[Rfam]
RNA sequence: GUUACCCACUCCAAUCUGGUGACAGAAAGGAGGUGUAAAUUUGGAUUAUGUUUUUUCUUUUAUAGUUGCUGUCAUGGCUGGUGUGGUGUGUCACUACAUCAUCAAAUGGUUAGACAGUAAACUGGAUCGGUAACUAACCUGUAGAUGCUCAACUACAUAAAACGAGAAGAAACCCCUCAGAGAUGCCGCUCUGAGGGGUUUCAUUUUGUGUAAA
Number, nucleotide and partner (000 for none) at each position: 001g000002u000003u000004a000005c033006c032007c000008a000009c029010u028011c000012c025013a000014a000015u022016c021017u000018g000019g000020u000021g016022a015023c000024a000025g012026a000027a000028a010029g009030g000031a000032g006033g005034u000035g158036u048037a047038a046039a000040u000041u000042u000043g000044g000045a000046u038047u037048a036049u000050g000051u000052u000053u000054u000055u000056u000057c000058u000059u000060u000061u000062a000063u155064a154065g153066u152067u151068g150069c000070u147071g146072u145073c144074a000075u000076g000077g100078c000079u098080g097081g000082u000083g094084u093085g000086g000087u000088g000089u000090g000091u000092c000093a084094c083095u000096a000097c080098a079099u000100c077101a000102u000103c000104a000105a000106a000107u000108g139109g138110u137111u136112a135113g134114a000115c000116a131117g000118u129119a000120a000121a000122c000123u000124g000125g000126a000127u000128c000129g118130g000131u116132a000133a000134c113135u112136a111137a110138c109139c108140u000141g000142u000143a000144g073145a072146u071147g070148c000149u000150c068151a067152a066153c065154u064155a063156c000157a000158u035159a000160a211161a207162a206163c000164g000165a000166g202167a201168a000169g000170a000171a200172a199173c198174c197175c196176c195177u194178c193179a192180g191181a190182g189183a000184u000185g000186c000187c000188g000189c182190u181191c180192u179193g178194a177195g176196g175197g174198g173199u172200u171201u167202c166203a000204u000205u000206u162207u161208g000209u000210g000211u160212a000213a000214a000

About this RNA:
Rfam assigns this 214-nucleotide sequence from Clostridium sp. CAG:81 to the family "Streptococcus sRNA SpF66". The match comes from Rfam's covariance-model search (60 bits). By type it is a small RNA. NCBI's taxonomy places the organism under Bacteria, Bacillati, Bacillota, Clostridiaceae, Clostridium.